[Rfam]
RNA sequence: AGAGGUUGGUAAGUUAGAAGCACUUAUGGUGCAGCCCUGUCAGAUUCCAGUGAAUCUGUGAAUUCUGCU
Number, nucleotide and partner (000 for none) at each position: 001a000002g000003a000004g036005g000006u000007u000008g035009g000010u033011a000012a000013g069014u000015u067016a066017g065018a064019a063020g032021c031022a030023c000024u000025u000026a000027u000028g000029g000030u022031g021032c020033a010034g000035c008036c004037c000038u000039g000040u000041c058042a057043g056044a055045u054046u053047c052048c000049a000050g000051u000052g047053a046054a045055u044056c043057u042058g041059u000060g000061a000062a000063u019064u018065c017066u016067g015068c000069u013
RNA: Mammalian CPEB3 ribozyme
Organism: Alligator sinensis